[Rfam]
RNA: leuA-Halobacteria RNA
RNA sequence: CGAUCCGGAGGAUACCCGAAGUCGCCACGCGGCGGCUGAUCGAGAAAUUCUCC
Numbered sequence: 001c002g003a004u005c006c007g008g009a010g011g012a013u014a015c016c017c018g019a020a021g022u023c024g025c026c027a028c029g030c031g032g033c034g035g036c037u038g039a040u041c042g043a044g045a046a047a048u049u050c051u052c053c
Base pairs, nucleotide, nucleotide: 020037021036022035023034024033025032026031